[Rfam]
RNA: Group II catalytic intron D1-D4-6
RNA sequence: AAAGAGCCGCACAAGAAAGGAGUAGCGCACCAUUUUGGCCCCGAGUCAUGCGCCUGGGUUCGUAAGGAUGCGGGCGAAGCGUUGACAGGGAUACGCACAGGCCAGGUAUGGAGCUCCGAAAUCACCACUUCGGUGUGCCGACCGUGUCUUGAUACGGGGAAGGCAAUAUGAAGGGCAGCGUUAGGCGCGAGCGGUCCUUCGACACCGCGGAGUCAGAGACCC
Numbered sequence: 001a002a003a004g005a006g007c008c009g010c011a012c013a014a015g016a017a018a019g020g021a022g023u024a025g026c027g028c029a030c031c032a033u034u035u036u037g038g039c040c041c042c043g044a045g046u047c048a049u050g051c052g053c054c055u056g057g058g059u060u061c062g063u064a065a066g067g068a069u070g071c072g073g074g075c076g077a078a079g080c081g082u083u084g085a086c087a088g089g090g091a092u093a094c095g096c097a098c099a100g101g102c103c104a105g106g107u108a109u110g111g112a113g114c115u116c117c118g119a120a121a122u123c124a125c126c127a128c129u130u131c132g133g134u135g136u137g138c139c140g141a142c143c144g145u146g147u148c149u150u151g152a153u154a155c156g157g158g159g160a161a162g163g164c165a166a167u168a169u170g171a172a173g174g175g176c177a178g179c180g181u182u183a184g185g186c187g188c189g190a191g192c193g194g195u196c197c198u199u200c201g202a203c204a205c206c207g208c209g210g211a212g213u214c215a216g217a218g219a220c221c222c
Stems, first nucleotide, its partner, number of pairs: 012037005019031002022028001023190001025188002040090003045086004049081002051076006058069004111214001113213006131207006137164003169201008178192002